[Rfam]
RNA sequence: CCUGGCAGUUCCAAAGUGCUCACAGUGCAGGUAGUGCCAGUGGAUCUACUGCAAUGUCUGCACUUCAAGUAUUGCCGG
Numbered sequence: 001c002c003u004g005g006c007a008g009u010u011c012c013a014a015a016g017u018g019c020u021c022a023c024a025g026u027g028c029a030g031g032u033a034g035u036g037c038c039a040g041u042g043g044a045u046c047u048a049c050u051g052c053a054a055u056g057u058c059u060g061c062a063c064u065u066c067a068a069g070u071a072u073u074g075c076c077g078g
Stems, first nucleotide, its partner, number of pairs: 005075004011069001014065006022057003026053003030050005
mir-17 microRNA precursor family: a 78-nucleotide RNA from Danio rerio. Rfam links the family to the GO terms miRNA-mediated post-transcriptional gene silencing and RISC complex. About the family: This family represents the microRNA (miRNA) precursor mir-17, family, which includes mir-20, mir-91, and mir-103. miRNAs are transcribed as ~70nt precursors (modelled here) and subsequently processed by the Dicer enzyme to give a ~22nt product. In this case the mature sequence comes from the 3' arm of the precursor. The extents of the hairpin precursors are not generally known and are estimated based on hairpin prediction. On this family, see Ambros, Cell 2001: "microRNAs: tiny regulators with great potential".